Shown here is an 80-nucleotide RNA sequence, a member of the family "RAGATH-18 RNA". By type it is a small RNA. The sequence is in the family's curated seed alignment.
RNA sequence: CUUGUGAACUGUUAUAUCAAAUGGAAGUAGAUUUUAUAUUUCAUGAUAUAAAAACAAAACCAGACAGGUUGAAGCAAGAA
Numbered sequence: 001c002u003u004g005u006g007a008a009c010u011g012u013u014a015u016a017u018c019a020a021a022u023g024g025a026a027g028u029a030g031a032u033u034u035u036a037u038a039u040u041u042c043a044u045g046a047u048a049u050a051a052a053a054a055c056a057a058a059a060c061c062a063g064a065c066a067g068g069u070u071g072a073a074g075c076a077a078g079a080a
Stems, first nucleotide, its partner, number of pairs: 001078005009067005022062003030055001032053006